[Rfam]
RNA sequence: GGAUCGUUAACCGCUUAUUAAGGAAUGUAUUCUAUAAAAAUACAUAUCCAGCGAGCUGGAUUGGAGCGGAUCUCCCGCUCCGUUUGACGCCUCCCUGUUAAACCACUUCAGAGCCGCCUAAUGCGCGGCUCUUUUUUU
Numbered sequence: 001g002g003a004u005c006g007u008u009a010a011c012c013g014c015u016u017a018u019u020a021a022g023g024a025a026u027g028u029a030u031u032c033u034a035u036a037a038a039a040a041u042a043c044a045u046a047u048c049c050a051g052c053g054a055g056c057u058g059g060a061u062u063g064g065a066g067c068g069g070a071u072c073u074c075c076c077g078c079u080c081c082g083u084u085u086g087a088c089g090c091c092u093c094c095c096u097g098u099u100a101a102a103c104c105a106c107u108u109c110a111g112a113g114c115c116g117c118c119u120a121a122u123g124c125g126c127g128g129c130u131c132u133u134u135u136u137u138u
Stems, first nucleotide, its partner, number of pairs: 001043001003041002005013002019034002022031002047060004064080006086099004110132008119123001
RNA: Alphaproteobacterial sRNA BjrC1505
Organism: Pseudovibrio exalbescens